The record is a 74-nucleotide sequence from Nannospalax galili, which matches "U1A polyadenylation inhibition element (PIE)" in Rfam. Gene Ontology term of the family: regulation of mRNA polyadenylation.
RNA sequence: CAAUACAGCAUUGUACCCAGAGUCUAUCCCCAGACCUUGCACCUGGCGCUGUUAGAGUGUAAUUAAAGUGGCUU
Number, nucleotide and partner (000 for none) at each position: 001c000002a000003a000004u000005a052006c051007a050008g049009c048010a000011u000012u000013g000014u000015a000016c000017c046018c045019a044020g043021a000022g035023u034024c033025u032026a000027u000028c000029c000030c000031c000032a025033g024034a023035c022036c000037u000038u000039g000040c000041a000042c000043c020044u019045g018046g017047c000048g009049c008050u007051g006052u005053u000054a000055g000056a000057g000058u000059g000060u000061a000062a000063u000064u000065a000066a000067a000068g000069u000070g000071g000072c000073u000074u000